[Rfam]
RNA sequence: UUCUUAUCUAGAGUGGUGGAGGGACUGGCCCGAUGAAACCCAGCAACAGCUAGUAUUUAACUAGAAAUGUGCUAAAUCCUGCAGGGUAACCUGGAAGAUAAGAG
Numbered sequence: 001u002u003c004u005u006a007u008c009u010a011g012a013g014u015g016g017u018g019g020a021g022g023g024a025c026u027g028g029c030c031c032g033a034u035g036a037a038a039c040c041c042a043g044c045a046a047c048a049g050c051u052a053g054u055a056u057u058u059a060a061c062u063a064g065a066a067a068u069g070u071g072c073u074a075a076a077u078c079c080u081g082c083a084g085g086g087u088a089a090c091c092u093g094g095a096a097g098a099u100a101a102g103a104g
Stems, first nucleotide, its partner, number of pairs: 001104008013041001015040003021031003025081001027079002042073004047069002050064003077096001082093004
The family of this 104-nucleotide RNA sequence from Desulfonispora thiosulfatigenes is "SAM riboswitch aptamer (S box leader)".